The family of this 75-nucleotide RNA from Bacillus pumilus is "Bacillus sRNA ncr982".
On this family, see Irnov et al., Nucleic Acids Res 2010: "Identification of regulatory RNAs in Bacillus subtilis".
Taxonomically the source falls in Bacillus pumilus (Bacteria, Bacillati, Caryophanales, Bacillaceae).

RNA sequence: GGUGAAAACAUGAUGUAGUUUUCCUCCUUCACAGGUUCGUUCCAAGCCAAGCGAACCUGCUUUUUUUAUGCAAUU
Numbered sequence: 001g002g003u004g005a006a007a008a009c010a011u012g013a014u015g016u017a018g019u020u021u022u023c024c025u026c027c028u029u030c031a032c033a034g035g036u037u038c039g040u041u042c043c044a045a046g047c048c049a050a051g052c053g054a055a056c057c058u059g060c061u062u063u064u065u066u067u068a069u070g071c072a073a074u075u
Stems, first nucleotide, its partner, number of pairs: 002011003032059010